Shown here is a 78-nucleotide RNA sequence from Rhipidura dahli, a member of the family "mir-551 microRNA precursor family".
Rfam links the family to the GO terms miRNA-mediated post-transcriptional gene silencing and RISC complex.
Lineage of the source: Eukaryota > Bilateria > Euteleostomi > Neognathae > Rhipidura.
RNA sequence: UGGCUCCAGAAAUCAAGGGUGGGUAAGACCUCGUACGCAAACCCAAAGGCGACCCAUACUUGGUUUCAUUUAAAGUGG
Numbered sequence: 001u002g003g004c005u006c007c008a009g010a011a012a013u014c015a016a017g018g019g020u021g022g023g024u025a026a027g028a029c030c031u032c033g034u035a036c037g038c039a040a041a042c043c044c045a046a047a048g049g050c051g052a053c054c055c056a057u058a059c060u061u062g063g064u065u066u067c068a069u070u071u072a073a074a075g076u077g078g
Stems, first nucleotide, its partner, number of pairs: 004078002007075001009067006016060002021055004029049003